Rfam assigns this 101-nucleotide RNA sequence from Microbacterium sp. ABRD28 to the family "Glycine riboswitch aptamer". It scores 33 bits against the family's covariance model. Rfam's curators write: This family represents the bacterial glycine riboswitch.
RNA sequence: CGACUCUGAAAAAGGAUGCCGCCGCUUUCUGCGUCAUCCGCCGACGGUGAAAGCCCGGGUACGCCCCGGCGCGAAACUCUCAGGUCCAUGACAGAGGGGGA
Numbered sequence: 001c002g003a004c005u006c007u008g009a010a011a012a013a014g015g016a017u018g019c020c021g022c023c024g025c026u027u028u029c030u031g032c033g034u035c036a037u038c039c040g041c042c043g044a045c046g047g048u049g050a051a052a053g054c055c056c057g058g059g060u061a062c063g064c065c066c067c068g069g070c071g072c073g074a075a076a077c078u079c080u081c082a083g084g085u086c087c088a089u090g091a092c093a094g095a096g097g098g099g100g101a
Stems, first nucleotide, its partner, number of pairs: 001099001004096005015038004040085003043081002047079001049077001053072002
Dot-bracket structure: (..(((((......((((................)))).(((((..(.(...((................))....).))).)))......)))))..)..
Taxonomically the source falls in Microbacterium (Bacteria, Actinomycetota, Actinomycetes, Microbacteriaceae).